[Rfam]
The record is a 74-nucleotide RNA sequence from Loxodonta africana, which matches "Small nucleolar RNA SNORD81" in Rfam. Rfam's curators put it in the seed alignment. The family's consensus secondary structure was predicted with PFOLD. Lineage of the source: Eukaryota > Opisthokonta > Chordata > Craniata > Loxodonta. A reference for the family is Smith and Steitz (1998), "Classification of gas5 as a multi-small-nucleolar-RNA (snoRNA) host gene and a member of the 5'-terminal oligopyrimidine gene family reveals common features of snoRNA host genes", Mol Cell Biol. Rfam links the family to the GO terms nucleolus and RNA processing.
RNA sequence: CAGAAUACAUGAUGAUCCACCCCAACUUGAACUCUCUUACUGAUUACUUGAUGAUGAUAAGAUCUGAUAUUCUG
Numbered sequence: 001c002a003g004a005a006u007a008c009a010u011g012a013u014g015a016u017c018c019a020c021c022c023c024a025a026c027u028u029g030a031a032c033u034c035u036c037u038u039a040c041u042g043a044u045u046a047c048u049u050g051a052u053g054a055u056g057a058u059a060a061g062a063u064c065u066g067a068u069a070u071u072c073u074g
Stems, first nucleotide, its partner, number of pairs: 001074007